[Rfam]
RNA: Alphaproteobacteria transfer-messenger RNA
Organism: Teichococcus wenyumeiae
Nucleotides: 331
Base pairs, nucleotide, nucleotide: 040056041055043054044053045052060202061201062200063199064198070195071194072193073192076189085180086179087178089177090176091175095111096110097109098108099107112162113161114160115159116158117157118156203218204217205216206215208229210227213225214224295311296310297309298308301328302327303326304325305324306323
Number, partner (000 for none) and nucleotide at each position: 001000c002000c003000c004000c005000u006000c007000g008000a009000u010000u011000u012000c013000g014000g015000g016000c017000c018000c019000g020000c021000a022000u023000g024000c025000c026000c027000c028000u029000a030000u031000a032000u033000u034000g035000g036000u037000u038000u039000c040056g041055c042000u043054c044053a045052c046000c047000u048000u049000c050000g051000g052045g053044u054043g055041g056040c057000u058000a059000u060202g061201g062200c063199g064198a065000u066000a067000a068000a069000c070195g071194g072193u073192a074000u075000u076189u077000g078000g079000a080000a081000u082000a083000a084000g085180c086179a087178u088000u089177g090176c091175g092000g093000a094000c095111c096110c097109g098108g099107g100000g101000g102000c103000a104000g105000u106000g107099c108098c109097c110096g111095g112162c113161g114160u115159c116158u117157c118156c119000a120000c121000c122000a123000a124000u125000c126000a127000a128000a129000c130000c131000a132000c133000c134000a135000g136000g137000g138000a139000u140000c141000g142000u143000a144000u145000g146000g147000u148000g149000g150000u151000g152000g153000c154000a155000u156118g157117g158116g159115g160114a161113c162112g163000a164000a165000a166000c167000a168000g169000u170000c171000u172000c173000g174000a175091c176090g177089c178087g179086u180085g181000u182000g183000g184000u185000a186000a187000a188000g189076a190000c191000u192073u193072a194071c195070c196000u197000u198064u199063u200062g201061c202060c203218c204217g205216g206215c207000a208229u209000u210227g211000u212000a213225c214224c215206g216205c217204c218203g219000u220000u221000a222000u223000c224214g225213g226000g227210c228000u229208a230000u231000a232000u233000c234000a235000c236000a237000a238000g239000u240000g241000c242000c243000a244000a245000c246000g247000a248000u249000a250000a251000u252000g253000g254000u255000c256000g257000c258000g259000a260000g261000a262000c263000c264000a265000u266000g267000g268000c269000g270000c271000u272000c273000g274000c275000u276000g277000c278000c279000u280000a281000a282000c283000a284000a285000u286000a287000g288000g289000u290000a291000a292000g293000c294000g295311c296310g297309g298308u299000c300000c301328g302327g303326g304325g305324g306323g307000a308298a309297c310296c311295g312000g313000g314000c315000a316000a317000c318000a319000g320000a321000a322000u323306c324305c325304c326303c327302c328301c329000a330000c331000u